Rfam assigns this 97-nucleotide sequence from Amnimonas aquatica to the family "SAH (S-adenosyl-L-homocysteine) riboswitch aptamer". Pairs were carried over by alignment from the consensus structure, which is taken from published work. The source organism's lineage runs through Bacteria, Pseudomonadati, Pseudomonadota, Gammaproteobacteria and Amnimonas.
[Rfam]
RNA sequence: GCGACCGAGGGGCGCUGCAGCGGCAGGCCAGGUGCGUUUUUCAGGCACGGCCGCCGUCAGGCUCGGUCGCGACUCCCGUCAACGGCGCCCGUUCACC
Numbered sequence: 001g002c003g004a005c006c007g008a009g010g011g012g013c014g015c016u017g018c019a020g021c022g023g024c025a026g027g028c029c030a031g032g033u034g035c036g037u038u039u040u041u042c043a044g045g046c047a048c049g050g051c052c053g054c055c056g057u058c059a060g061g062c063u064c065g066g067u068c069g070c071g072a073c074u075c076c077c078g079u080c081a082a083c084g085g086c087g088c089c090c091g092u093u094c095a096c097c
Stems, first nucleotide, its partner, number of pairs: 002069007021056004026051001